[Rfam]
Rfam assigns this 95-nucleotide RNA sequence from Chelonoidis abingdonii to the family "Z30 small nucleolar RNA".
The family has 20 seed sequences and 802 matches in Rfam 15.1.
Lineage of the source: Eukaryota > Chordata > Vertebrata > Testudinoidea > Chelonoidis nigra species complex.
Rfam classes the family as a C/D-box small nucleolar RNA.
Gene Ontology terms of the family: RNA processing and nucleolus.
RNA sequence: AGCAAUGAUGAGUGAAGUAUAGUCUGAUCUGGUAUUGUCAAGAUUUUGUCUUGGUUCUGACCAGGGUGUGAUAAUGUAAUCUUCUCUCUGAGCUG
Numbered sequence: 001a002g003c004a005a006u007g008a009u010g011a012g013u014g015a016a017g018u019a020u021a022g023u024c025u026g027a028u029c030u031g032g033u034a035u036u037g038u039c040a041a042g043a044u045u046u047u048g049u050c051u052u053g054g055u056u057c058u059g060a061c062c063a064g065g066g067u068g069u070g071a072u073a074a075u076g077u078a079a080u081c082u083u084c085u086c087u088c089u090g091a092g093c094u095g
Stems, first nucleotide, its partner, number of pairs: 002093002037055004